[Rfam]
RNA sequence: AAGCAAACCUGUUCUAUCGCUGUUCCUUCGGGAAGAGAGGAAAGUCCGGGCAACAUAGAGCGACACGCUUCCUAACGGGAAGGCGUCCUACACGUUGGAUGACAGAAAGUGCCACAGAAAAUAUACCGUCCGCCUUUUGGGCAGAUAAGGGUGAAAACGUGAGGUAAGAGCUCACGGUAUUGCAUGGUGACAUGUAUUACGGUAAACCUCGUGUGUUGAAAGAUCAAAUAGGUUGCGAAAUCAGAAGGCUGCUCGCCUUCUACUACUUCUCUAGUAGUAUUCGCGAUGGGUAGAUUGAUUGAGCUUGCGUGUGAAUGCAAGCCUAGAUAAAUGAUAGAAAUCCCUCAAGGGAUACAGAACCCGGCUUAUAAGGUUUGCUUCUUU
Numbered sequence: 001a002a003g004c005a006a007a008c009c010u011g012u013u014c015u016a017u018c019g020c021u022g023u024u025c026c027u028u029c030g031g032g033a034a035g036a037g038a039g040g041a042a043a044g045u046c047c048g049g050g051c052a053a054c055a056u057a058g059a060g061c062g063a064c065a066c067g068c069u070u071c072c073u074a075a076c077g078g079g080a081a082g083g084c085g086u087c088c089u090a091c092a093c094g095u096u097g098g099a100u101g102a103c104a105g106a107a108a109g110u111g112c113c114a115c116a117g118a119a120a121a122u123a124u125a126c127c128g129u130c131c132g133c134c135u136u137u138u139g140g141g142c143a144g145a146u147a148a149g150g151g152u153g154a155a156a157a158c159g160u161g162a163g164g165u166a167a168g169a170g171c172u173c174a175c176g177g178u179a180u181u182g183c184a185u186g187g188u189g190a191c192a193u194g195u196a197u198u199a200c201g202g203u204a205a206a207c208c209u210c211g212u213g214u215g216u217u218g219a220a221a222g223a224u225c226a227a228a229u230a231g232g233u234u235g236c237g238a239a240a241u242c243a244g245a246a247g248g249c250u251g252c253u254c255g256c257c258u259u260c261u262a263c264u265a266c267u268u269c270u271c272u273a274g275u276a277g278u279a280u281u282c283g284c285g286a287u288g289g290g291u292a293g294a295u296u297g298a299u300u301g302a303g304c305u306u307g308c309g310u311g312u313g314a315a316u317g318c319a320a321g322c323c324u325a326g327a328u329a330a331a332u333g334a335u336a337g338a339a340a341u342c343c344c345u346c347a348a349g350g351g352a353u354a355c356a357g358a359a360c361c362c363g364g365c366u367u368a369u370a371a372g373g374u375u376u377g378c379u380u381c382u383u384u
Stems, first nucleotide, its partner, number of pairs: 001380010011369001012339007020037002023034004042367003046364005051218004058272001060270001063214005068082005083103001084101004104209002109207002111203003126150002128146003132142004158176006179198001181196006222296004232287006263277005303322008

Overview: Bacterial RNase P class A: a 384-nucleotide RNA sequence from Sphingobacterium sp. JB170. A search with the family's covariance model found it, with a score of 258 bits. The family's RNA type in Rfam is ribozyme.